A member of the RNA family "Actino-pnp RNA" from Streptomyces auratus, 80 nucleotides long. Rfam classes the family as a cis-regulatory element.
RNA sequence: GCCGGUCCUCGGUAGUGGCCCCCGGACGAUCCAUGGACGCCCUGCGUCCCUCGCUCCGGGUGCUUCGAUCGAAGACCGGC
Numbered sequence: 001g002c003c004g005g006u007c008c009u010c011g012g013u014a015g016u017g018g019c020c021c022c023c024g025g026a027c028g029a030u031c032c033a034u035g036g037a038c039g040c041c042c043u044g045c046g047u048c049c050c051u052c053g054c055u056c057c058g059g060g061u062g063c064u065u066c067g068a069u070c071g072a073a074g075a076c077c078g079g080c
Base pairs, nucleotide, nucleotide: 001080002079003078004077005076006075007074009072010071011070012069013068017064018063019062021060022059023058024057025056026055027053028052029051

Lineage of the source: Bacteria > Bacillati > Actinomycetota > Actinomycetes > Streptomyces auratus.